[Rfam]
RNA sequence: UCUCGACGUAGAGGUGCGGUACUGAAAAGUAACCAUGUUUGGGGUGAUGCCUAUGAAGCGUGGUGAAAGGCUUUAUCGCCGAAGUUAGUCGCAGAUCAAAACGGCUAGCUGGGGUUGUCAGCGAAUAGGGGCAACACUGCCAUAGUCUACAUACUGAUGCGGAUAUUAUUUUGCUUGGUAUAUCCUUGUUAAACUAUGGAGCGCUACUGUAGGG
Numbered sequence: 001u002c003u004c005g006a007c008g009u010a011g012a013g014g015u016g017c018g019g020u021a022c023u024g025a026a027a028a029g030u031a032a033c034c035a036u037g038u039u040u041g042g043g044g045u046g047a048u049g050c051c052u053a054u055g056a057a058g059c060g061u062g063g064u065g066a067a068a069g070g071c072u073u074u075a076u077c078g079c080c081g082a083a084g085u086u087a088g089u090c091g092c093a094g095a096u097c098a099a100a101a102c103g104g105c106u107a108g109c110u111g112g113g114g115u116u117g118u119c120a121g122c123g124a125a126u127a128g129g130g131g132c133a134a135c136a137c138u139g140c141c142a143u144a145g146u147c148u149a150c151a152u153a154c155u156g157a158u159g160c161g162g163a164u165a166u167u168a169u170u171u172u173g174c175u176u177g178g179u180a181u182a183u184c185c186u187u188g189u190u191a192a193a194c195u196a197u198g199g200a201g202c203g204c205u206a207c208u209g210u211a212g213g214g
Base pairs, nucleotide, nucleotide: 008207009206010205011204016079017078018077019076020075021074024071032064033063034062035061036060037059038058039057083110084109085108086107087106088105089104090103091102111138112137114135115134116133117132118131119130140199141198142197143196144195145194146193
This 214-nucleotide sequence from Vibrio sp. V28_P6S34P95 belongs to the Rfam family "Lysine riboswitch aptamer".
The organism belongs to Vibrio, within Bacteria.